[Rfam]
RNA sequence: UCACAAAGAAACGUUGACUGCCACGUGUCACAUUCUGAUUGGACGAUGAACAGAUAAAUGUUAGAGUUGGUUCUUAGGCGCACAUUUUCAUGUCCAAUCAAAACGUGACACGUGACAGUCAACGUUC
Numbered sequence: 001u002c003a004c005a006a007a008g009a010a011a012c013g014u015u016g017a018c019u020g021c022c023a024c025g026u027g028u029c030a031c032a033u034u035c036u037g038a039u040u041g042g043a044c045g046a047u048g049a050a051c052a053g054a055u056a057a058a059u060g061u062u063a064g065a066g067u068u069g070g071u072u073c074u075u076a077g078g079c080g081c082a083c084a085u086u087u088u089c090a091u092g093u094c095c096a097a098u099c100a101a102a103a104c105g106u107g108a109c110a111c112g113u114g115a116c117a118g119u120c121a122a123c124g125u126u127c
Stems, first nucleotide, its partner, number of pairs: 020116001022114002025111002029107003033103002036100001038098005
MIR1520 microRNA precursor family: a 127-nucleotide RNA sequence from Glycine max. It scores 68 bits against the family's covariance model.